[Rfam]
RNA sequence: GUCUUAAUAGCCUUACGGACUGUGUAUGUAUAGUGAG
Numbered sequence: 001g002u003c004u005u006a007a008u009a010g011c012c013u014u015a016c017g018g019a020c021u022g023u024g025u026a027u028g029u030a031u032a033g034u035g036a037g
Stems, first nucleotide, its partner, number of pairs: 012037005019029002